RNA sequence: GGGGAUAAACGCUGUACGGAAUAGGCGUAGUGGACCCGGGGGCGGUACCCGGCGCCUCCACCAUCACCCCUCCCCGCCAGGGGAUGGGUCCAUGGGGGCGAAACAGGAUCGACACGCGUAGUAAAGGUACGGUCUUCUCCCGGCAUGGUACCGCCGUUAUCGGGCCAUACUCACAGAUGCCAACGAUAACGUUGCGUCUGAUCUGCGCGUGGCCGCCUAA
Numbered sequence: 001g002g003g004g005a006u007a008a009a010c011g012c013u014g015u016a017c018g019g020a021a022u023a024g025g026c027g028u029a030g031u032g033g034a035c036c037c038g039g040g041g042g043c044g045g046u047a048c049c050c051g052g053c054g055c056c057u058c059c060a061c062c063a064u065c066a067c068c069c070c071u072c073c074c075c076g077c078c079a080g081g082g083g084a085u086g087g088g089u090c091c092a093u094g095g096g097g098g099c100g101a102a103a104c105a106g107g108a109u110c111g112a113c114a115c116g117c118g119u120a121g122u123a124a125a126g127g128u129a130c131g132g133u134c135u136u137c138u139c140c141c142g143g144c145a146u147g148g149u150a151c152c153g154c155c156g157u158u159a160u161c162g163g164g165c166c167a168u169a170c171u172c173a174c175a176g177a178u179g180c181c182a183a184c185g186a187u188a189a190c191g192u193u194g195c196g197u198c199u200g201a202u203c204u205g206c207g208c209g210u211g212g213c214c215g216c217c218u219a220a
Base pairs, nucleotide, nucleotide: 001140002139003138004137005136014130015129016128017127026118027117028116030115031114032113036052037051038050039049040048053100054099055098056097057096058095059094141156142155143154144153